[Rfam]
Notes:
MIR2118 microRNA precursor family: a 169-nucleotide RNA. On this family, see Xue et al., Nucleic Acids Res 2009: "Characterization and expression profiles of miRNAs in rice seeds". Rfam 15.1 lists 2,377 matches to the family in 45 species.
RNA sequence: AUCAGGAAGAGGAAGAAAAGAGGGUCUGAGAGCGGUGGGCAUGGGAACAUGGAGGAAAGCCCAAACUCUUCUUCGCCUCUAGAACUAGGGGCUGAGAUUUGGUUUCCUUGUUUUCCUGAUGCCUCCCAUGCCUAUUGUUCUCAGAUGCUCCUUCCUCUUCCUUUUGGUU
Numbered sequence: 001a002u003c004a005g006g007a008a009g010a011g012g013a014a015g016a017a018a019a020g021a022g023g024g025u026c027u028g029a030g031a032g033c034g035g036u037g038g039g040c041a042u043g044g045g046a047a048c049a050u051g052g053a054g055g056a057a058a059g060c061c062c063a064a065a066c067u068c069u070u071c072u073u074c075g076c077c078u079c080u081a082g083a084a085c086u087a088g089g090g091g092c093u094g095a096g097a098u099u100u101g102g103u104u105u106c107c108u109u110g111u112u113u114u115c116c117u118g119a120u121g122c123c124u125c126c127c128a129u130g131c132c133u134a135u136u137g138u139u140c141u142c143a144g145a146u147g148c149u150c151c152u153u154c155c156u157c158u159u160c161c162u163u164u165u166g167g168u169u
Base pairs, nucleotide, nucleotide: 009160010159011158012157013156015154016153017152020150021149022148025145026144027143028142029141030140031139032138033137034136036134037133038132039131040130041129042128043127044126045125046124048121049120050119052117054116055115056114057113058112059111060110